The family of this 126-nucleotide RNA from Bison bison is "U4atac minor spliceosomal RNA".
Pairs were carried over by alignment from the consensus structure, which is taken from published work.
The family's RNA type in Rfam is spliceosomal small nuclear RNA.
U4atac is an essential component of the minor U12-type spliceosome complex which is required for removal of the rarer class of eukaryotic introns (AT-AC, U12-type).
The family is grouped with related families in Rfam's "U4 clan".
Taxonomically the source falls in Bison bison (Eukaryota, Metazoa, Artiodactyla, Ruminantia).
For this family Rfam cites "Evolutionary conservation of minor U12-type spliceosome between plants and humans" (Lorkovic et al., RNA, 2005).
The match comes from Rfam's covariance-model search (114 bits).
RNA sequence: ACCAUCCUUUUCUUGGGGUUGCGCUACUGUCCGAUGAACGCUUAGUGAGGAUAGUACUGCUAACACCUAUGCAACACGCCCGCACCGGCUAAAGCGCAGCUUUAUCACGGUGCAAUUUUUGGAAAA
Numbered sequence: 001a002c003c004a005u006c007c008u009u010u011u012c013u014u015g016g017g018g019u020u021g022c023g024c025u026a027c028u029g030u031c032c033g034a035u036g037a038a039c040g041c042u043u044a045g046u047g048a049g050g051a052u053a054g055u056a057c058u059g060c061u062a063a064c065a066c067c068u069a070u071g072c073a074a075c076a077c078g079c080c081c082g083c084a085c086c087g088g089c090u091a092a093a094g095c096g097c098a099g100c101u102u103u104a105u106c107a108c109g110g111u112g113c114a115a116u117u118u119u120u121g122g123a124a125a126a
Stems, first nucleotide, its partner, number of pairs: 006018004021060003026055007038046002082113006090104006